Rfam assigns this 305-nucleotide RNA sequence from Terfezia boudieri to the family "Group I catalytic intron".
For this family Rfam cites "Self-splicing of group I introns" (Cech, Annu Rev Biochem, 1990).
The family's consensus secondary structure is taken from published work.
[Rfam]
RNA sequence: GAGUCAUGAUCCUUUGGGGACGUUUUGGGAAAACGUCCUAAUGGGGAUAAACUGUCAAACUCCGGGAAUCUCCUAAAGCUUAUGGUACCAAACUAUAUACGAAAGUGUAUAAGUGGCUGAACUAAUUACUCAGGUAAGGUAACAAGCCAUAAGAUGAGUGAAAACGAAAUGGACAAUCGCGGAUCUAAAUCAGCUUUCAGAUCAAAUUUGAAUUCUGUAAAAGAGCAACGAGUAGACGGCAGUUGAUGCAUUAAAAAGUGAUUAAUGCGUUUAAGGUAUACUUUAAUGGGUUUCGAAAGAAACUA
Numbered sequence: 001g002a003g004u005c006a007u008g009a010u011c012c013u014u015u016g017g018g019g020a021c022g023u024u025u026u027g028g029g030a031a032a033a034c035g036u037c038c039u040a041a042u043g044g045g046g047a048u049a050a051a052c053u054g055u056c057a058a059a060c061u062c063c064g065g066g067a068a069u070c071u072c073c074u075a076a077a078g079c080u081u082a083u084g085g086u087a088c089c090a091a092a093c094u095a096u097a098u099a100c101g102a103a104a105g106u107g108u109a110u111a112a113g114u115g116g117c118u119g120a121a122c123u124a125a126u127u128a129c130u131c132a133g134g135u136a137a138g139g140u141a142a143c144a145a146g147c148c149a150u151a152a153g154a155u156g157a158g159u160g161a162a163a164a165c166g167a168a169a170u171g172g173a174c175a176a177u178c179g180c181g182g183a184u185c186u187a188a189a190u191c192a193g194c195u196u197u198c199a200g201a202u203c204a205a206a207u208u209u210g211a212a213u214u215c216u217g218u219a220a221a222a223g224a225g226c227a228a229c230g231a232g233u234a235g236a237c238g239g240c241a242g243u244u245g246a247u248g249c250a251u252u253a254a255a256a257a258g259u260g261a262u263u264a265a266u267g268c269g270u271u272u273a274a275g276g277u278a279u280a281c282u283u284u285a286a287u288g289g290g291u292u293u294c295g296a297a298a299g300a301a302a303c304u305a
Stems, first nucleotide, its partner, number of pairs: 006023003010019002028037002050244005056238001061183004065178002071173003184224002191217002196212005228284001230283005246270009290303005
A search with the family's covariance model found it, with a score of 67 bits. Rfam's curators write: Group I catalytic introns are large self-splicing ribozymes.